[Rfam]
RNA sequence: GAAAUGAGAAGAGGCGCGUUGUUCAGGCAGCCGGCAGCAGGAGUCGCCACUCCGAGGAUCGCCGGUCAGGGGAGCAACGCCGAGACGGCGGCCGGUGGCAGAACGGUCGCGGUCGGCCGCGAAGGCUGAAUCCUUCGGGCUGUCACCUGUUGGGUGGAGUGCUUCCUGAUGA
Numbered sequence: 001g002a003a004a005u006g007a008g009a010a011g012a013g014g015c016g017c018g019u020u021g022u023u024c025a026g027g028c029a030g031c032c033g034g035c036a037g038c039a040g041g042a043g044u045c046g047c048c049a050c051u052c053c054g055a056g057g058a059u060c061g062c063c064g065g066u067c068a069g070g071g072g073a074g075c076a077a078c079g080c081c082g083a084g085a086c087g088g089c090g091g092c093c094g095g096u097g098g099c100a101g102a103a104c105g106g107u108c109g110c111g112g113u114c115g116g117c118c119g120c121g122a123a124g125g126c127u128g129a130a131u132c133c134u135u136c137g138g139g140c141u142g143u144c145a146c147c148u149g150u151u152g153g154g155u156g157g158a159g160u161g162c163u164u165c166c167u168g169a170u171g172a
Stems, first nucleotide, its partner, number of pairs: 006167001008165004016080009030066006037059001084114003088110007115141004120137006143157006
Rfam assigns this 172-nucleotide RNA sequence from Oceanimonas sp. GK1 to the family "Lysine riboswitch aptamer". NCBI's taxonomy places the organism under Bacteria, Pseudomonadati, Gammaproteobacteria, Aeromonadales, Oceanimonas.